Annotation
A member of the RNA family "mir-147 microRNA precursor family" from Oryctolagus cuniculus, 78 nucleotides long. Taxonomically the source falls in Oryctolagus (Eukaryota, Eumetazoa, Deuterostomia, Eutheria).
RNA sequence: CCCGAAUCCAGAGAGAGCAUUUCUGCACACACCAGACUAUUGCAAGCAGUGUGCGGAAAUGCUUCCGUUACAUUCAUA
Numbered sequence: 001c002c003c004g005a006a007u008c009c010a011g012a013g014a015g016a017g018c019a020u021u022u023c024u025g026c027a028c029a030c031a032c033c034a035g036a037c038u039a040u041u042g043c044a045a046g047c048a049g050u051g052u053g054c055g056g057a058a059a060u061g062c063u064u065c066c067g068u069u070a071c072a073u074u075c076a077u078a
Base pairs, nucleotide, nucleotide: 004075005074006073007072010069011068013066015064016063018061019060020059021058022057023056024055025054026053027052028051029050032049